RNA sequence: CCUGGUCGUAAGAAUGCUUCAGGGACCACAACGAGCACUAGUUGCCCUCGCUGUCCCUGGGAAGGUCUGAGAAAAGAUCCUAUGGACCUUCUAGCAGGAGGAAUCCUUAAGGGACUGGAGUCGUACAAGGAACAAGUCUGAUUCGACGAGGUAGUCUGCCAAUCCGAAUGAAAAUUUGGACACAGACGGGUACAAGACGCCUUCGGGCAGAUGCCAUUUACCUCGGGCGUUCAGUUGUGACACGACCCCGAUCAGCUAUGCUAAGUGCGAUAGCGCCGUAGAACCCAAUUCAGACUACUCUACGGCCAGG
Numbered sequence: 001c002c003u004g005g006u007c008g009u010a011a012g013a014a015u016g017c018u019u020c021a022g023g024g025a026c027c028a029c030a031a032c033g034a035g036c037a038c039u040a041g042u043u044g045c046c047c048u049c050g051c052u053g054u055c056c057c058u059g060g061g062a063a064g065g066u067c068u069g070a071g072a073a074a075a076g077a078u079c080c081u082a083u084g085g086a087c088c089u090u091c092u093a094g095c096a097g098g099a100g101g102a103a104u105c106c107u108u109a110a111g112g113g114a115c116u117g118g119a120g121u122c123g124u125a126c127a128a129g130g131a132a133c134a135a136g137u138c139u140g141a142u143u144c145g146a147c148g149a150g151g152u153a154g155u156c157u158g159c160c161a162a163u164c165c166g167a168a169u170g171a172a173a174a175u176u177u178g179g180a181c182a183c184a185g186a187c188g189g190g191u192a193c194a195a196g197a198c199g200c201c202u203u204c205g206g207g208c209a210g211a212u213g214c215c216a217u218u219u220a221c222c223u224c225g226g227g228c229g230u231u232c233a234g235u236u237g238u239g240a241c242a243c244g245a246c247c248c249c250g251a252u253c254a255g256c257u258a259u260g261c262u263a264a265g266u267g268c269g270a271u272a273g274c275g276c277c278g279u280a281g282a283a284c285c286c287a288a289u290u291c292a293g294a295c296u297a298c299u300c301u302a303c304g305g306c307c308a309g310g
Base pairs, nucleotide, nucleotide: 001310002309003308004307008303009302010301018273019272021058022057023056024055025054033047035045036044037043067293068292069291070290071289076253077252078251079250087101088100089099090098091097102116104114105113106112117249118248120246121245122244123243138234139233140232

Description:
This 310-nucleotide RNA from Plectus sambesii belongs to the Rfam family "Nuclear RNase P". NCBI's taxonomy places the organism under Eukaryota, Opisthokonta, Eumetazoa, Bilateria, Plectus. Clan: RNaseP clan. It scores 88 bits against the family's covariance model. Pairs were carried over by alignment from the consensus structure, which is taken from published work.